This 114-nucleotide sequence from Ruminococcaceae bacterium AF10-16 belongs to the Rfam family "THF (Tetrahydrofolate) riboswitch aptamer". The family's consensus secondary structure is taken from published work. Tetrahydrofolate (THF) riboswitch was first reported for Ames et al. as an RNA motif in 5' untranslated (5'-UTR)regions of folate transport and biosynthesis genes in Firmicutes genomes. A search with the family's covariance model found it, with a score of 68 bits. Its family is annotated with tetrahydrofolate metabolic process in the Gene Ontology. On this family, see Ames et al., Chem Biol 2010: "A eubacterial riboswitch class that senses the coenzyme tetrahydrofolate".

[Rfam]
RNA sequence: GGCAGAGUAGGAAGCCAUGUGUUUACGCGAAGAGCGAAUAGUGCCGUUGGGAUGGGAAGUUGCCCGCGGACGAAAAACCCAUGGUUUGCAGUAUGGUUUCCGCAUCCGCUUGCC
Numbered sequence: 001g002g003c004a005g006a007g008u009a010g011g012a013a014g015c016c017a018u019g020u021g022u023u024u025a026c027g028c029g030a031a032g033a034g035c036g037a038a039u040a041g042u043g044c045c046g047u048u049g050g051g052a053u054g055g056g057a058a059g060u061u062g063c064c065c066g067c068g069g070a071c072g073a074a075a076a077a078c079c080c081a082u083g084g085u086u087u088g089c090a091g092u093a094u095g096g097u098u099u100c101c102g103c104a105u106c107c108g109c110u111u112g113c114c
Stems, first nucleotide, its partner, number of pairs: 001114005010101010020090003041071002044069004049065003055107003059103001075087004